Notes
The record is a 224-nucleotide sequence from Cuspidothrix issatschenkoi, which matches "HNH endonuclease-associated RNA and ORF (HEARO) RNA" in Rfam. The family's RNA type in Rfam is non-coding RNA gene. Pairs were carried over by alignment from the consensus structure, which is taken from published work. NCBI's taxonomy places the organism under Bacteria, Bacillati, Cyanobacteriota, Cuspidothrix, Cuspidothrix issatschenkoi.

RNA sequence: GUCAACCACCCAUCACUUCCCUUCGGGUAAGUGAGGGCUUGUAAAAGCCUAGUUGAUCAGACUCAAUUCUUGACCGAACUACAUUAGAGGUAAGAGUUAAAGACCUACCAGGGAAUGCGUAGCUAGUUCCCUGCUCUAGAACUUAAAAGUUAAACAGGCUUAAGGGUUAAACCAGUGCUUUUAAGAUAGUUACCGACCUCUAACAUUGUCAAAGCUAACAUUAC
Numbered sequence: 001g002u003c004a005a006c007c008a009c010c011c012a013u014c015a016c017u018u019c020c021c022u023u024c025g026g027g028u029a030a031g032u033g034a035g036g037g038c039u040u041g042u043a044a045a046a047g048c049c050u051a052g053u054u055g056a057u058c059a060g061a062c063u064c065a066a067u068u069c070u071u072g073a074c075c076g077a078a079c080u081a082c083a084u085u086a087g088a089g090g091u092a093a094g095a096g097u098u099a100a101a102g103a104c105c106u107a108c109c110a111g112g113g114a115a116u117g118c119g120u121a122g123c124u125a126g127u128u129c130c131c132u133g134c135u136c137u138a139g140a141a142c143u144u145a146a147a148a149g150u151u152a153a154a155c156a157g158g159c160u161u162a163a164g165g166g167u168u169a170a171a172c173c174a175g176u177g178c179u180u181u182u183a184a185g186a187u188a189g190u191u192a193c194c195g196a197c198c199u200c201u202a203a204c205a206u207u208g209u210c211a212a213a214g215c216u217a218a219c220a221u222u223a224c
Stems, first nucleotide, its partner, number of pairs: 001057006008050001010037002013034002020027002038047003060210003065080001067078003084203008105139002109133008120217005142185009154176002157173002160170003